[Rfam]
Nucleotides: 100
Stems, first nucleotide, its partner, number of pairs: 007057006015047002020044002022041001023038004028033001058073006075095001077098001081093003
Number, partner (000 for none) and nucleotide at each position: 001000a002000u003000c004000a005000a006000u007057g008056u009055u010054u011053u012052c013000u014000a015047g016046g017000g018000u019000u020044c021043c022041g023038a024037a025036g026035c027000u028033u029000u030000a031000a032000a033028a034000c035026g036025c037024u038023u039000g040000a041022c042000u043021g044020g045000u046016c047015c048000a049000a050000g051000a052012g053011a054010a055009a056008a057007c058073g059072c060071a061070c062069a063068g064000u065000u066000u067000a068063c069062u070061g071060u072059g073058u074000a075095c076000a077098c078000g079000g080000a081093g082092g083091g084000a085000c086000a087000a088000a089000a090000g091083c092082c093081c094000g095075g096000g097000a098077g099000a100000u